[Rfam]
RNA sequence: UAGAAUAAUGUAGAUAAGGUAAGUCGGCAAAAUAGAUCCGUAACUUUGGGAAAAGGAUUGGCUCAUAGGGCAGAGCUUGUUGGGCCCUUGAUAGAUCUAUAGGGACCUGACUAGGACUACUUCUGGGUCAAACUGGAGGCGGACCUGGAUGGGACCUUGUAGUAAUGUCUUGGGUAGAUUUUUAACAAAAGCAUCUGGCAAGCACUUAACUGUCAACUAUGAACUGGUACGGACAAGGGGAAUCUGACUGUCUAAUUAAAACAUAGCAUUGUGAUGGCCAGAAAGUGGUGUUGACACAAUGUGAUUUCUGCCCAGUGCUCUGAAUGUCAAAGUGAAGAAAUUCAACCAAGCGCGGGUAAACAGCGGGAGUAACUAUGACUCUCUUAAGGUAGCCAAAUGCCUCGUCAUCUAAUUAGUGACGCGCAUGAAUGGAUUAACAAGAUUCCCACUGUCCCUAUCUACUAUCUAGCAAAACCACAGCCAAGGGAACAGGCUUGGCAAA
Numbered sequence: 001u002a003g004a005a006u007a008a009u010g011u012a013g014a015u016a017a018g019g020u021a022a023g024u025c026g027g028c029a030a031a032a033u034a035g036a037u038c039c040g041u042a043a044c045u046u047u048g049g050g051a052a053a054a055g056g057a058u059u060g061g062c063u064c065a066u067a068g069g070g071c072a073g074a075g076c077u078u079g080u081u082g083g084g085c086c087c088u089u090g091a092u093a094g095a096u097c098u099a100u101a102g103g104g105a106c107c108u109g110a111c112u113a114g115g116a117c118u119a120c121u122u123c124u125g126g127g128u129c130a131a132a133c134u135g136g137a138g139g140c141g142g143a144c145c146u147g148g149a150u151g152g153g154a155c156c157u158u159g160u161a162g163u164a165a166u167g168u169c170u171u172g173g174g175u176a177g178a179u180u181u182u183u184a185a186c187a188a189a190a191g192c193a194u195c196u197g198g199c200a201a202g203c204a205c206u207u208a209a210c211u212g213u214c215a216a217c218u219a220u221g222a223a224c225u226g227g228u229a230c231g232g233a234c235a236a237g238g239g240g241a242a243u244c245u246g247a248c249u250g251u252c253u254a255a256u257u258a259a260a261a262c263a264u265a266g267c268a269u270u271g272u273g274a275u276g277g278c279c280a281g282a283a284a285g286u287g288g289u290g291u292u293g294a295c296a297c298a299a300u301g302u303g304a305u306u307u308c309u310g311c312c313c314a315g316u317g318c319u320c321u322g323a324a325u326g327u328c329a330a331a332g333u334g335a336a337g338a339a340a341u342u343c344a345a346c347c348a349a350g351c352g353c354g355g356g357u358a359a360a361c362a363g364c365g366g367g368a369g370u371a372a373c374u375a376u377g378a379c380u381c382u383c384u385u386a387a388g389g390u391a392g393c394c395a396a397a398u399g400c401c402u403c404g405u406c407a408u409c410u411a412a413u414u415a416g417u418g419a420c421g422c423g424c425a426u427g428a429a430u431g432g433a434u435u436a437a438c439a440a441g442a443u444u445c446c447c448a449c450u451g452u453c454c455c456u457a458u459c460u461a462c463u464a465u466c467u468a469g470c471a472a473a474a475c476c477a478c479a480g481c482c483a484a485g486g487g488a489a490c491a492g493g494c495u496u497g498g499c500a501a502a
Stems, first nucleotide, its partner, number of pairs: 001468004010462007018454002035059005044049001060225002063222006226230001238447007245439002249263003266302008274292001277289004306433003310364002315361002317357002320355003325352003333344004365383006384388001404420005481498005
RNA: Archaeal large subunit ribosomal RNA, nucleotides 2004 to 2505
Organism: Puccinia coronata